[Rfam]
RNA: c-di-AMP riboswitch aptamer (ydaO/yuaA leader)
RNA sequence: UCCACAGACACGCCCGUGUCCUUGCGAACCGGGGACCCACACUUCCCGGGGUGAAUCCGCGUCCCCCGCGCCGCGGUAGGGCUACUCCUGGCCCGAACCCGUCAGCUAACCCGGUAGGCGGCCGAGGAGAGGAGUC
Number, nucleotide and partner (000 for none) at each position: 001u000002c000003c000004a000005c000006a000007g000008a000009c000010a000011c120012g119013c118014c117015c000016g000017u000018g025019u000020c000021c000022u000023u000024g000025c018026g000027a000028a115029c114030c113031g112032g111033g110034g000035a000036c000037c000038c048039a000040c000041a000042c000043u000044u000045c000046c000047c000048g038049g100050g099051g098052u000053g000054a000055a000056u000057c076058c075059g074060c073061g000062u000063c000064c000065c000066c000067c000068g000069c000070g000071c000072c000073g060074c059075g058076g057077u000078a000079g094080g093081g092082c091083u000084a000085c000086u000087c000088c000089u000090g000091g082092c081093c080094c079095g000096a000097a000098c051099c050100c049101g000102u000103c000104a000105g000106c000107u000108a000109a000110c033111c032112c031113g030114g029115u028116a000117g014118g013119c012120g011121g000122c000123c000124g000125a000126g000127g000128a000129g000130a000131g000132g000133a000134g000135u000136c000